Shown here is a 52-nucleotide RNA from Aureimonas sp. Leaf460, a member of the family "ffh sRNA". Pairs were carried over by alignment from the consensus structure, which is taken from published work.

[Rfam]
RNA sequence: CGUUACGGAGGUCCCCAUCCGCCAGCGAGUGUCGCCCGCGGAUGCGGCUUUG
Numbered sequence: 001c002g003u004u005a006c007g008g009a010g011g012u013c014c015c016c017a018u019c020c021g022c023c024a025g026c027g028a029g030u031g032u033c034g035c036c037c038g039c040g041g042a043u044g045c046g047g048c049u050u051u052g
Stems, first nucleotide, its partner, number of pairs: 016044007025035004